[Rfam]
RNA sequence: UGCAGCCUUGUCGUCAAAUUCCGUGUUUUCUCUACAAUGGACUGUACUGGCCAAAAUGGCUGCCAUAGUGAGUUGUUAAUGAGCCCCACAUCCCUCUGGCAUGGCUGGAUAAAUGUGUACUACAGACAGUU
Numbered sequence: 001u002g003c004a005g006c007c008u009u010g011u012c013g014u015c016a017a018a019u020u021c022c023g024u025g026u027u028u029u030c031u032c033u034a035c036a037a038u039g040g041a042c043u044g045u046a047c048u049g050g051c052c053a054a055a056a057u058g059g060c061u062g063c064c065a066u067a068g069u070g071a072g073u074u075g076u077u078a079a080u081g082a083g084c085c086c087c088a089c090a091u092c093c094c095u096c097u098g099g100c101a102u103g104g105c106u107g108g109a110u111a112a113a114u115g116u117g118u119a120c121u122a123c124a125g126a127c128a129g130u131u
Stems, first nucleotide, its partner, number of pairs: 002063004021049001023047004029041003072123002075120002077117001084108002
The record is a 131-nucleotide RNA from Coregonus sp. 'balchen', which matches "Small nucleolar RNA SNORA5" in Rfam.
Pairs were carried over by alignment from the consensus structure, which was predicted with RNAfold.
About the family: ACA5 is a member of the H/ACA class of snoRNA that guide the sites of modification of uridines to pseudouridines.
The organism belongs to Coregonus, within Eukaryota.
Its family is annotated with RNA processing and nucleolus in the Gene Ontology.